[Rfam]
RNA sequence: GCGGUGCGAGGUAGUAGAUUGUAUAGUUGUGGGGUAGUGAUAUUACCCUGAUCAGAAGAUAACUAUACAAUGUUUUGCCUUCCCUGA
Numbered sequence: 001g002c003g004g005u006g007c008g009a010g011g012u013a014g015u016a017g018a019u020u021g022u023a024u025a026g027u028u029g030u031g032g033g034g035u036a037g038u039g040a041u042a043u044u045a046c047c048c049u050g051a052u053c054a055g056a057a058g059a060u061a062a063c064u065a066u067a068c069a070a071u072g073u074u075u076u077g078c079c080u081u082c083c084c085u086g087a
Stems, first nucleotide, its partner, number of pairs: 002086003006082001008081007016073001018071010032048004052057001
Dot-bracket structure: .(((.(.(((((((.(.((((((((((....((((.........))))...(....)....)))))))))).).)))))))).))).
The record is an 87-nucleotide sequence from Hucho hucho, which matches "let-7 microRNA precursor family" in Rfam.
Its Rfam clan is "let-7 microRNA precursor clan".
About the family: This family represents the microRNAs (miRNA) let-7 and mir-98. let-7 was identified from a study of developmental timing in C. elegans, and was later shown to be part of a much larger class of non-coding RNAs termed miRNAs.